Background
FMN riboswitch aptamer (RFN element): a 139-nucleotide RNA from Hypnocyclicus thermotrophus. Gene Ontology term of the family: FMN binding. A search with the family's covariance model found it, with a score of 111 bits.
RNA sequence: AAAAUCUUUAGGGGCAGGGUGAAAUUCCCGACCGGCGGUAAAGUCCGCGAGUUAAAUCAUUUAAUAUUUGUCAAAUGAUUUAACAUGAACUGGUGAAAUUCCAGUACCGACAGUAAAGUCUGGAAAGGAUAAAGAUUAA
Numbered sequence: 001a002a003a004a005u006c007u008u009u010a011g012g013g014g015c016a017g018g019g020u021g022a023a024a025u026u027c028c029c030g031a032c033c034g035g036c037g038g039u040a041a042a043g044u045c046c047g048c049g050a051g052u053u054a055a056a057u058c059a060u061u062u063a064a065u066a067u068u069u070g071u072c073a074a075a076u077g078a079u080u081u082a083a084c085a086u087g088a089a090c091u092g093g094u095g096a097a098a099u100u101c102c103a104g105u106a107c108c109g110a111c112a113g114u115a116a117a118g119u120c121u122g123g124a125a126a127g128g129a130u131a132a133a134g135a136u137u138a139a
Stems, first nucleotide, its partner, number of pairs: 003137008017029003031119002033109002035048004043107002053083001089105005111122003